[Rfam]
RNA sequence: GGUUGCAAGUUUAAGGCCGCCGCAGAAGCUCUCAUGGUGCAGCCCUGUCAGAUUCCAGCGAAUCUGUGAAUUCUGCU
Numbered sequence: 001g002g003u004u005g006c007a008a009g010u011u012u013a014a015g016g017c018c019g020c021c022g023c024a025g026a027a028g029c030u031c032u033c034a035u036g037g038u039g040c041a042g043c044c045c046u047g048u049c050a051g052a053u054u055c056c057a058g059c060g061a062a063u064c065u066g067u068g069a070a071u072u073c074u075g076c077u
Stems, first nucleotide, its partner, number of pairs: 015044003022076006028040002049066007
A member of the RNA family "Mammalian CPEB3 ribozyme" from Crocodylus porosus, 77 nucleotides long. NCBI's taxonomy places the organism under Eukaryota, Bilateria, Teleostomi, Sauropsida, Crocodylus. The match comes from Rfam's covariance-model search (50 bits).